[Rfam]
RNA sequence: CCUCCCGUGAUGCGCGAAAUCUCCGUGACUUUCGUUCUUCUGAGCGAGAUGAAGCCAGAGAUUUGAGUCUGAGGAGG
Numbered sequence: 001c002c003u004c005c006c007g008u009g010a011u012g013c014g015c016g017a018a019a020u021c022u023c024c025g026u027g028a029c030u031u032u033c034g035u036u037c038u039u040c041u042g043a044g045c046g047a048g049a050u051g052a053a054g055c056c057a058g059a060g061a062u063u064u065g066a067g068u069c070u071g072a073g074g075a076g077g
Base pairs, nucleotide, nucleotide: 001077002076003075005073
RNA: Small nucleolar RNA SNORD59